Shown here is a 149-nucleotide sequence from Coniosporium apollinis, a member of the family "Small nucleolar RNA snR80". Its family is annotated with nucleolus and RNA processing in the Gene Ontology. A reference for the family is Schattner et al. (2004), "Genome-wide searching for pseudouridylation guide snoRNAs: analysis of the Saccharomyces cerevisiae genome", Nucleic Acids Res. By type it is an H/ACA-box small nucleolar RNA.
RNA sequence: GCACUUUGCCAACACUCUGGCCCUUACCCAUUCCUCCAUGGUAUAGGCCUAUUUUGGUGCAAAGGAGACGGAAGCUCCUGACCAACUACUCACCGCGGUAUCCUUCCCCAUGGGUGUGGAUACAGUGGUCCAUCUUUAUCGGUCUACAU
Numbered sequence: 001g002c003a004c005u006u007u008g009c010c011a012a013c014a015c016u017c018u019g020g021c022c023c024u025u026a027c028c029c030a031u032u033c034c035u036c037c038a039u040g041g042u043a044u045a046g047g048c049c050u051a052u053u054u055u056g057g058u059g060c061a062a063a064g065g066a067g068a069c070g071g072a073a074g075c076u077c078c079u080g081a082c083c084a085a086c087u088a089c090u091c092a093c094c095g096c097g098g099u100a101u102c103c104u105u106c107c108c109c110a111u112g113g114g115u116g117u118g119g120a121u122a123c124a125g126u127g128g129u130c131c132a133u134c135u136u137u138a139u140c141g142g143u144c145u146a147c148a149u
Stems, first nucleotide, its partner, number of pairs: 006062003019049004025043004080144004093128004098123006